Overview
Small nucleolar RNA MBII-202: an 81-nucleotide sequence from Dissostichus mawsoni.
[Rfam]
RNA sequence: UGAUGAUAAAUCUCCGGAAUCUCUGUAUUUACUUGAUGAAUACCUUGAACCUAUUAUCUGAUGACUGUUCCUUCUGCUAUC
Numbered sequence: 001u002g003a004u005g006a007u008a009a010a011u012c013u014c015c016g017g018a019a020u021c022u023c024u025g026u027a028u029u030u031a032c033u034u035g036a037u038g039a040a041u042a043c044c045u046u047g048a049a050c051c052u053a054u055u056a057u058c059u060g061a062u063g064a065c066u067g068u069u070c071c072u073u074c075u076g077c078u079a080u081c
Base pairs, nucleotide, nucleotide: 002081003080004079005078
By type it is a C/D-box small nucleolar RNA. NCBI's taxonomy places the organism under Eukaryota, Clupeocephala, Percomorphaceae, Nototheniidae, Dissostichus.